[Rfam]
RNA sequence: GAUGCAAGCCAGACAGCCGCUGGCCAGAGCAGCAAUGCGAUGGCGGGAGGAAGGUCCGGACUCCAUAGAGCAGGGUGACGGUUAACGGCCGUCCGCCGAAAGCCUCGCAAGAGGUAUAAGGCGAGGAACAGGGCCACAGAGACGAGCGUAUUAAGUUACGGUGAAACGCGGUAACCUCCACCUGGAGCAAUCCCAAAUAGGCACGCGAUGAGGUGGCUCGCCGAGCGUGCGGGUAGGGAGCUUGAGCGCCUGAGCAAUCCGGCGCCUAGAGGAAUGGCUGUCAUAGCGGAUGCCGCAAGGCGGACGCCGUAACAGAAUCCGGCCUAUCGGCUUGCUUCACUU
Numbered sequence: 001g002a003u004g005c006a007a008g009c010c011a012g013a014c015a016g017c018c019g020c021u022g023g024c025c026a027g028a029g030c031a032g033c034a035a036u037g038c039g040a041u042g043g044c045g046g047g048a049g050g051a052a053g054g055u056c057c058g059g060a061c062u063c064c065a066u067a068g069a070g071c072a073g074g075g076u077g078a079c080g081g082u083u084a085a086c087g088g089c090c091g092u093c094c095g096c097c098g099a100a101a102g103c104c105u106c107g108c109a110a111g112a113g114g115u116a117u118a119a120g121g122c123g124a125g126g127a128a129c130a131g132g133g134c135c136a137c138a139g140a141g142a143c144g145a146g147c148g149u150a151u152u153a154a155g156u157u158a159c160g161g162u163g164a165a166a167c168g169c170g171g172u173a174a175c176c177u178c179c180a181c182c183u184g185g186a187g188c189a190a191u192c193c194c195a196a197a198u199a200g201g202c203a204c205g206c207g208a209u210g211a212g213g214u215g216g217c218u219c220g221c222c223g224a225g226c227g228u229g230c231g232g233g234u235a236g237g238g239a240g241c242u243u244g245a246g247c248g249c250c251u252g253a254g255c256a257a258u259c260c261g262g263c264g265c266c267u268a269g270a271g272g273a274a275u276g277g278c279u280g281u282c283a284u285a286g287c288g289g290a291u292g293c294c295g296c297a298a299g300g301c302g303g304a305c306g307c308c309g310u311a312a313c314a315g316a317a318u319c320c321g322g323c324c325u326a327u328c329g330g331c332u333u334g335c336u337u338c339a340c341u342u
Stems, first nucleotide, its partner, number of pairs: 001338002004335007011327001012282007020047002023044004052325003056322005061187004068219004073183005078092005093125001094123004126178002131176002133172003147160004191239004201230006212222003246265005252259002
Rfam assigns this 342-nucleotide RNA from Zemynaea arenosa to the family "Bacterial RNase P class A".
Lineage of the source: Bacteria > Betaproteobacteria > Burkholderiales > Oxalobacteraceae > Zemynaea.
By type it is a ribozyme.